[Rfam]
RNA sequence: CAAGUAGUCCCGCGUUGCAGCCAGACCCCCGACCCGGCUGCAGCGUGGGACUACCUA
Numbered sequence: 001c002a003a004g005u006a007g008u009c010c011c012g013c014g015u016u017g018c019a020g021c022c023a024g025a026c027c028c029c030c031g032a033c034c035c036g037g038c039u040g041c042a043g044c045g046u047g048g049g050a051c052u053a054c055c056u057a
Base pairs, nucleotide, nucleotide: 002056004054005053007051008050009049010048011047012046013045014044015043016042017041018040019039020038021037022036
Record summary
Rfam assigns this 57-nucleotide RNA from Rhodococcus tukisamuensis to the family "F6 TB sRNA". By type it is a small RNA. A reference for the family is Arnvig and Young (2009), "Identification of small RNAs in Mycobacterium tuberculosis", Mol Microbiol. It scores 63 bits against the family's covariance model. NCBI's taxonomy places the organism under Bacteria, Bacillati, Actinomycetes, Nocardiaceae, Rhodococcus.